[Rfam]
Nucleotides: 153
Stems, first nucleotide, its partner, number of pairs: 003066006016052004021046004086147005092141001099133003103129001105127003
Number, partner (000 for none) and nucleotide at each position: 001000g002000u003066u004065g005064c006063u007062u008061c009000a010000u011000a012000u013000g014000g015000u016052g017051a018050a019049c020000g021046c022045c023044c024043u025000g026000u027000a028000a029000a030000u031000u032000u033000c034000g035000a036000u037000u038000g039000u040000g041000u042000u043024g044023g045022g046021g047000a048000u049019g050018u051017u052016c053000u054000a055000g056000u057000u058000u059000c060000c061008g062007g063006a064005g065004c066003g067000u068000a069000g070000a071000u072000u073000a074000a075000a076000a077000u078000u079000a080000a081000g082000g083000a084000u085000u086147a087146c088145c089144a090143g091000u092141a093000c094000u095000a096000a097000a098000c099133a100132g101131c102000a103129c104000c105127g106126u107125g108000u109000c110000u111000g112000c113000u114000u115000u116000u117000u118000g119000c120000u121000u122000u123000u124000g125107c126106a127105c128000c129103g130000u131101g132100u133099u134000a135000c136000c137000u138000g139000u140000c141092u142000c143090c144089u145088g146087g147086u148000a149000c150000a151000a152000a153000u